[Rfam]
RNA: c-di-GMP-I riboswitch aptamer
RNA sequence: UUCGUUUCAUGGCAAACCUGCCGAAAGGCAGGGACGCAAAGCUUAGGGUCUACGGUCCUGCAGGGACUAUGACAGCCUGGCCGCCGAA
Numbered sequence: 001u002u003c004g005u006u007u008c009a010u011g012g013c014a015a016a017c018c019u020g021c022c023g024a025a026a027g028g029c030a031g032g033g034a035c036g037c038a039a040a041g042c043u044u045a046g047g048g049u050c051u052a053c054g055g056u057c058c059u060g061c062a063g064g065g066a067c068u069a070u071g072a073c074a075g076c077c078u079g080g081c082c083g084c085c086g087a088a
Stems, first nucleotide, its partner, number of pairs: 012037002017032006041081003045078003048073003055067004